[Rfam]
RNA sequence: UGCUUCCCUCGUGAUAUGUUUUGUAAUUGCUGGUUGACUUUAGGGGGAAUCGAGCCGCAAGGGACAUGAAUGCAGAACUGGCACAGAA
Numbered sequence: 001u002g003c004u005u006c007c008c009u010c011g012u013g014a015u016a017u018g019u020u021u022u023g024u025a026a027u028u029g030c031u032g033g034u035u036g037a038c039u040u041u042a043g044g045g046g047g048a049a050u051c052g053a054g055c056c057g058c059a060a061g062g063g064a065c066a067u068g069a070a071u072g073c074a075g076a077a078c079u080g081g082c083a084c085a086g087a088a
Base pairs, nucleotide, nucleotide: 003086004085005083007081008080015072016071017070024063027057029055030054031053032051033050034049035048038045039044

The record is an 88-nucleotide RNA from Lupinus angustifolius, which matches "MIR2086 microRNA precursor family" in Rfam. Taxonomically the source falls in Lupinus (Eukaryota, Streptophytina, Euphyllophyta, Mesangiospermae). The family has 3 seed sequences and 14 matches in Rfam 15.1. Its family is annotated with miRNA-mediated post-transcriptional gene silencing and RISC complex in the Gene Ontology. The family's consensus secondary structure was predicted with RNAalifold.